[Rfam]
RNA: Small nucleolar SNORD12/SNORD106
RNA sequence: GCUGGUGUAGGUGAUGACUCUUUCCCCGUCAGAGCGACAGUGUUGAUCUCUCGCUGUUCAAGCCAGAUCAUGUCUGAUGCACCAGC
Numbered sequence: 001g002c003u004g005g006u007g008u009a010g011g012u013g014a015u016g017a018c019u020c021u022u023u024c025c026c027c028g029u030c031a032g033a034g035c036g037a038c039a040g041u042g043u044u045g046a047u048c049u050c051u052c053g054c055u056g057u058u059c060a061a062g063c064c065a066g067a068u069c070a071u072g073u074c075u076g077a078u079g080c081a082c083c084a085g086c
Stems, first nucleotide, its partner, number of pairs: 001086009